RNA: L31-Firmicutes ribosomal protein leader
Organism: Paenibacillus gorillae
RNA sequence: CUCUGGGUCCGCAUGUGGCUCAGGGCAGAAAGAG
Numbered sequence: 001c002u003c004u005g006g007g008u009c010c011g012c013a014u015g016u017g018g019c020u021c022a023g024g025g026c027a028g029a030a031a032g033a034g
Base pairs, nucleotide, nucleotide: 001025002024003023004022005021006020007019008018